[Rfam]
RNA sequence: UCCUGGAGAAGAAGCACGCACACGGACGUCCUGAUACCUGCUCUGCCCCGGAGCUUGUGGAGGUGAACUCACUGGGGCUGGCUGCAAGAGGAAAUUAGUUUCCAAAGGAACGAGGAG
Numbered sequence: 001u002c003c004u005g006g007a008g009a010a011g012a013a014g015c016a017c018g019c020a021c022a023c024g025g026a027c028g029u030c031c032u033g034a035u036a037c038c039u040g041c042u043c044u045g046c047c048c049c050g051g052a053g054c055u056u057g058u059g060g061a062g063g064u065g066a067a068c069u070c071a072c073u074g075g076g077g078c079u080g081g082c083u084g085c086a087a088g089a090g091g092a093a094a095u096u097a098g099u100u101u102c103c104a105a106a107g108g109a110a111c112g113a114g115g116a117g
Base pairs, nucleotide, nucleotide: 001116002115003114004113
Small nucleolar RNA SNORD22: a 117-nucleotide RNA from Nannospalax galili. Rfam 15.1 lists 1,081 matches to the family in 414 species. The organism belongs to Nannospalax, within Eukaryota. Rfam links the family to the GO terms nucleolus and RNA processing.